[Rfam]
RNA sequence: GCUGCUGUAGGGUAGGAGGAGAGAGGUGUGACUGAAUCAGCUGUUUCCUCUCCCAUCCUCUACUUCUGCAGAAGC
Numbered sequence: 001g002c003u004g005c006u007g008u009a010g011g012g013u014a015g016g017a018g019g020a021g022a023g024a025g026g027u028g029u030g031a032c033u034g035a036a037u038c039a040g041c042u043g044u045u046u047c048c049u050c051u052c053c054c055a056u057c058c059u060c061u062a063c064u065u066c067u068g069c070a071g072a073a074g075c
Base pairs, nucleotide, nucleotide: 001075002074003073005071006070007069008068009067010066011063014059015058016057017056018054019053021052022051023050024049025048026047028045031042033040
RNA: mir-1759 microRNA precursor family